Notes: The family of this 135-nucleotide RNA sequence from Nonomuraea dietziae is "c-di-AMP riboswitch aptamer (ydaO/yuaA leader)".
RNA sequence: UGCCUGUGACCGCUGAAUCCGCACCAUGCGGAACCGGGGACCCAAUCCUUCUGGGGUGAAUCGGCACACCGUGCCGUAGGGCAGCUUCACGCCCGAACCCGUCAGCUAACCCGGUAAGCGGCAUGAAGCUGAGCA
Dot-bracket structure: ..........((((...(((((.....)))))((((((....((.......))(((.....((((.......))))..((((........))))...))).........)))))).))))...............